[Rfam]
RNA sequence: UAGACAGGCCGGGUCGCCGCUAGAAUAAUCUAGAGGAAAGUCCGGGCUCCGCAGGGGAGGAUGCCGGGUAAUUCCCGGGCGCCAACUUUUUGGCGACAGCCAGUGCCACAGAAAAUAUACCGCUUGGAAGAGAUUUCUUUUCGAGUAAGGGUGAAAAGGUGAAGUAAGAGCUCACCGGGCCACCUGGUAACAGAGGUCGCGAGGUAAACCUCAUCCGGAGCAAGAUUAAGCAGCAGGUGGAUUCCCCGCCCAAUACCUGCGGGUAGAUCGCUCAUUAUUGCGUCGGCGACGGCGAAGACAGAUAUAUGGCGACCGUAAACAGAACUCGGCUUACCGGCCUGUCUUUUUU
Numbered sequence: 001u002a003g004a005c006a007g008g009c010c011g012g013g014u015c016g017c018c019g020c021u022a023g024a025a026u027a028a029u030c031u032a033g034a035g036g037a038a039a040g041u042c043c044g045g046g047c048u049c050c051g052c053a054g055g056g057g058a059g060g061a062u063g064c065c066g067g068g069u070a071a072u073u074c075c076c077g078g079g080c081g082c083c084a085a086c087u088u089u090u091u092g093g094c095g096a097c098a099g100c101c102a103g104u105g106c107c108a109c110a111g112a113a114a115a116u117a118u119a120c121c122g123c124u125u126g127g128a129a130g131a132g133a134u135u136u137c138u139u140u141u142c143g144a145g146u147a148a149g150g151g152u153g154a155a156a157a158g159g160u161g162a163a164g165u166a167a168g169a170g171c172u173c174a175c176c177g178g179g180c181c182a183c184c185u186g187g188u189a190a191c192a193g194a195g196g197u198c199g200c201g202a203g204g205u206a207a208a209c210c211u212c213a214u215c216c217g218g219a220g221c222a223a224g225a226u227u228a229a230g231c232a233g234c235a236g237g238u239g240g241a242u243u244c245c246c247c248g249c250c251c252a253a254u255a256c257c258u259g260c261g262g263g264u265a266g267a268u269c270g271c272u273c274a275u276u277a278u279u280g281c282g283u284c285g286g287c288g289a290c291g292g293c294g295a296a297g298a299c300a301g302a303u304a305u306a307u308g309g310c311g312a313c314c315g316u317a318a319a320c321a322g323a324a325c326u327c328g329g330c331u332u333a334c335c336g337g338c339c340u341g342u343c344u345u346u347u348u349u
Base pairs, nucleotide, nucleotide: 002344003343004342005341006340007339008338009337010336011334012314013313014312015311016310017309018308020033021032022031023030024029038332039331040330042329043328044327045326046325047220048219049218050217054247055246056245057244059216060215061214062213063212064078065077066076067075068074079097080095081094082093083092084091085090098211099210103209104208105205106204107203120150121149122146123145124144125143126142127141128140129139130138158176159175160174161173162172177200178198179197180196181195184193185192186191224269225268226267227266233260234259235258236257237256238255240250242248278297279296281294282293283292284291285290

This 349-nucleotide RNA from an Olavius algarvensis spirochete endosymbiont belongs to the Rfam family "Bacterial RNase P class A". It scores 257 bits against the family's covariance model. The family's RNA type in Rfam is ribozyme.